[Rfam]
A member of the RNA family "Guanidine-I riboswitch aptamer" from Leptolyngbyaceae cyanobacterium T60_A2020_046, 147 nucleotides long. About the family: This family represents a conserved RNA structure found upstream of the ykkC and yxkD genes in Bacillus subtilis and related genes in other bacteria. The function of this family is unclear although it has been suggested that it may function to switch on efflux pumps and detoxification systems in response to harmful environmental molecules. The source organism's lineage runs through Bacteria, Bacillati, Cyanobacteriota, Leptolyngbyales and Leptolyngbyaceae. Rfam links the family to the GO term regulation of gene expression.
RNA sequence: UCAAUGGAUUUCUAGGGUUCCGGUUGUCGUUGCCAUCCUUAACUCCAGUAGUAGCGAAAAUGUCUGGUUCGAGAGAAAUCUCCAGAUUGGUCAGGAUAAAGCUAGGUUCCUCCAUCUGGUACACGGCGGGAUAAAAGCCCGGGAGGU
Numbered sequence: 001u002c003a004a005u006g007g008a009u010u011u012c013u014a015g016g017g018u019u020c021c022g023g024u025u026g027u028c029g030u031u032g033c034c035a036u037c038c039u040u041a042a043c044u045c046c047a048g049u050a051g052u053a054g055c056g057a058a059a060a061u062g063u064c065u066g067g068u069u070c071g072a073g074a075g076a077a078a079u080c081u082c083c084a085g086a087u088u089g090g091u092c093a094g095g096a097u098a099a100a101g102c103u104a105g106g107u108u109c110c111u112c113c114a115u116c117u118g119g120u121a122c123a124c125g126g127c128g129g130g131a132u133a134a135a136a137g138c139c140c141g142g143g144a145g146g147u
Stems, first nucleotide, its partner, number of pairs: 007080006015070002020067002022064001023061003027057007082119006122142001124145001128140003